The family of this 70-nucleotide RNA sequence from Tombusvirus lycopersici is "Tombus virus defective interfering (DI) RNA region 3".
The family's consensus secondary structure is taken from published work.
Rfam's curators write: This family represents region 3 of the defective interfering (DI) RNA element of the Tombus viruses and is found in the 3' UTR. This family has been found to enhance DI RNA accumulation by approximately 10-fold as well as mediating viral replication.
It is annotated as a cis-regulatory element.
Rfam's curators put it in the seed alignment.
Its family is annotated with viral genome replication in the Gene Ontology.
The literature on the family includes a 2003 paper in J Virol by Ray and White, "An internally located RNA hairpin enhances replication of Tomato bushy stunt virus RNAs".
RNA sequence: AGCGAGUAAGACAGACUCUUCAGUCUGAGUUCGCGGAUAUGAGUGUGAAUCUGACAACGCAUACAGGUUA
Numbered sequence: 001a002g003c004g005a006g007u008a009a010g011a012c013a014g015a016c017u018c019u020u021c022a023g024u025c026u027g028a029g030u031u032c033g034c035g036g037a038u039a040u041g042a043g044u045g046u047g048a049a050u051c052u053g054a055c056a057a058c059g060c061a062u063a064c065a066g067g068u069u070a
Base pairs, nucleotide, nucleotide: 012033014031015030016029017028018027048069049068050067051066052065053064